[Rfam]
A member of the RNA family "Actinobacteria sRNA Ms_IGR-7", 117 nucleotides long. It is annotated as a small RNA. A search with the family's covariance model found it, with a score of 49 bits.
RNA sequence: UGAAAGUGUCCUUCCGAUCCGCGCCAAUCAGGUUCUAGACAAACCGAUUAUCGCAGUUCAAGGGCACUUUCUUCAGUUUCCACGCCGGUCAGGAACCGACCAGGUCCACUGAUCGAG
Numbered sequence: 001u002g003a004a005a006g007u008g009u010c011c012u013u014c015c016g017a018u019c020c021g022c023g024c025c026a027a028u029c030a031g032g033u034u035c036u037a038g039a040c041a042a043a044c045c046g047a048u049u050a051u052c053g054c055a056g057u058u059c060a061a062g063g064g065c066a067c068u069u070u071c072u073u074c075a076g077u078u079u080c081c082a083c084g085c086c087g088g089u090c091a092g093g094a095a096c097c098g099a100c101c102a103g104g105u106c107c108a109c110u111g112a113u114c115g116a117g
Stems, first nucleotide, its partner, number of pairs: 002071012016059002019056001021054003026049003032044003097115003101111003